RNA sequence: UGAGUCUUCCAUGCUUGUCUCUCGGGGCCACAAAACGAGUUCCUGGUAACUCCACUGAUAAUGCCCUGGGCGAAAGUCCCCGGGCCUAGGAUAGAAAGUAUCAAGGUGUAAAAAGUGCAUCCAUAUCAUCCUGUGUUGGUGGUGCAUUCGCCUAUAUUCUGCGGAAUUUCGCCUGGCGUAUGGAUGAAGAGGAUUUUAUCCGAAUCCUUACGCGCCAGGUUGUCUGCGGAAAUCUGCCAGAGUAAAUCUUAGAUAUGGACGAGUUGGUAGGACUCGCCGGGUUGGUGUUCCCACACCCUCUCGGCUGAGAAACCGCCUACACAGAAUGGGGCUUACAUUGGGAAACUU
Numbered sequence: 001u002g003a004g005u006c007u008u009c010c011a012u013g014c015u016u017g018u019c020u021c022u023c024g025g026g027g028c029c030a031c032a033a034a035a036c037g038a039g040u041u042c043c044u045g046g047u048a049a050c051u052c053c054a055c056u057g058a059u060a061a062u063g064c065c066c067u068g069g070g071c072g073a074a075a076g077u078c079c080c081c082g083g084g085c086c087u088a089g090g091a092u093a094g095a096a097a098g099u100a101u102c103a104a105g106g107u108g109u110a111a112a113a114a115g116u117g118c119a120u121c122c123a124u125a126u127c128a129u130c131c132u133g134u135g136u137u138g139g140u141g142g143u144g145c146a147u148u149c150g151c152c153u154a155u156a157u158u159c160u161g162c163g164g165a166a167u168u169u170c171g172c173c174u175g176g177c178g179u180a181u182g183g184a185u186g187a188a189g190a191g192g193a194u195u196u197u198a199u200c201c202g203a204a205u206c207c208u209u210a211c212g213c214g215c216c217a218g219g220u221u222g223u224c225u226g227c228g229g230a231a232a233u234c235u236g237c238c239a240g241a242g243u244a245a246a247u248c249u250u251a252g253a254u255a256u257g258g259a260c261g262a263g264u265u266g267g268u269a270g271g272a273c274u275c276g277c278c279g280g281g282u283u284g285g286u287g288u289u290c291c292c293a294c295a296c297c298c299u300c301u302c303g304g305c306u307g308a309g310a311a312a313c314c315g316c317c318u319a320c321a322c323a324g325a326a327u328g329g330g331g332c333u334u335a336c337a338u339u340g341g342g343a344a345a346c347u348u
Stems, first nucleotide, its partner, number of pairs: 002348004007343005014257001016255004022070001023068006037052005074334003078331004090102004148164004166223002172219008181210001182207004192200003259318001261316001263314001
Dot-bracket structure: .((((.(((((..[.[[[[..(((((((........(((((......)))))..........)))))).)...(((.((((........((((.....)))).............................................((((.........)))).((....((((((((.(((((......(((...)))...))))..).))))))))..))............................]]]].].(.(.(..................................................).).).........)))))))....))))).))))